RNA sequence: GCCUGGUGGUUCCUUGAGGCUGCUUAUCUGUGCUGCUCAUCGAGGUUUUAUUUCACAGGCAAAAAGUAACCUCUUCAAUUUAAUGCUUGGGAGUUUCCUACCUAUGUGACUUCCAAAGCCCGGCUGGAGAGAUAUUC
Number, nucleotide and partner (000 for none) at each position: 001g060002c059003c058004u057005g000006g000007u050008g049009g000010u000011u000012c045013c044014u043015u042016g041017a040018g000019g036020c035021u000022g033023c032024u000025u000026a000027u000028c000029u000030g000031u000032g023033c022034u000035g020036c019037u000038c000039a000040u017041c016042g015043a014044g013045g012046u000047u000048u000049u008050a007051u000052u000053u000054c000055a000056c000057a004058g003059g002060c001061a000062a000063a000064a000065a000066g000067u000068a000069a000070c000071c000072u000073c129074u000075u127076c126077a125078a000079u123080u122081u000082a000083a000084u000085g119086c118087u116088u115089g114090g113091g000092a111093g110094u109095u108096u000097c106098c000099u000100a000101c000102c000103u000104a000105u000106g097107u000108g095109a094110c093111u092112u000113c090114c089115a088116a087117a000118g086119c085120c000121c000122g080123g079124c000125u077126g076127g075128a000129g073130a000131g000132a000133u000134a000135u000136u000137c000

Rfam assigns this 137-nucleotide RNA sequence from Silurus meridionalis to the family "Small nucleolar RNA SNORA84".
A reference for the family is Marker et al. (2002), "Experimental RNomics: identification of 140 candidates for small non-messenger RNAs in the plant Arabidopsis thaliana", Curr Biol.
NCBI's taxonomy places the organism under Eukaryota, Chordata, Teleostomi, Siluroidei, Silurus.